[Rfam]
RNA sequence: UGCAGAGUAGAUGUCGAAGCGUUAAGUGCUCGGUGAACAGGGAGUUGUCAUCGGGACGAAAAGUAUUACUUGCGAUUUCGGUGUCGCAUCCCGCUGCU
Numbered sequence: 001u002g003c004a005g006a007g008u009a010g011a012u013g014u015c016g017a018a019g020c021g022u023u024a025a026g027u028g029c030u031c032g033g034u035g036a037a038c039a040g041g042g043a044g045u046u047g048u049c050a051u052c053g054g055g056a057c058g059a060a061a062a063g064u065a066u067u068a069c070u071u072g073c074g075a076u077u078u079c080g081g082u083g084u085c086g087c088a089u090c091c092c093g094c095u096g097c098u
Base pairs, nucleotide, nucleotide: 002097003096004095005094010085011084012083013082014081015080016079017078018077019076020074021073022072026057027056029055030054031053032052033051034050035049036048040091041090042089044087061071062070063069064068
RNA: THF (Tetrahydrofolate) riboswitch aptamer
Organism: Lachnospiraceae bacterium A10